Description: Shown here is an 80-nucleotide sequence from Hermetia illucens, a member of the family "drz-agam-1 ribozyme". The source organism's lineage runs through Eukaryota, Bilateria, Ecdysozoa, Eumetabola and Hermetia. It scores 43 bits against the family's covariance model. Pairs were carried over by alignment from the consensus structure, which is taken from published work.

[Rfam]
RNA sequence: UUACUACCAAACCCUAUCUCCACCUCCGCGUGGUGAUCGCUGGGAGUUUUUCCGUAAUGAAAAACUGCAAACGGAGAAGG
Numbered sequence: 001u002u003a004c005u006a007c008c009a010a011a012c013c014c015u016a017u018c019u020c021c022a023c024c025u026c027c028g029c030g031u032g033g034u035g036a037u038c039g040c041u042g043g044g045a046g047u048u049u050u051u052c053c054g055u056a057a058u059g060a061a062a063a064a065c066u067g068c069a070a071a072c073g074g075a076g077a078a079g080g
Base pairs, nucleotide, nucleotide: 013080014079015078017076019074020073022034023033024032045066046065047064048063049062050061051060053059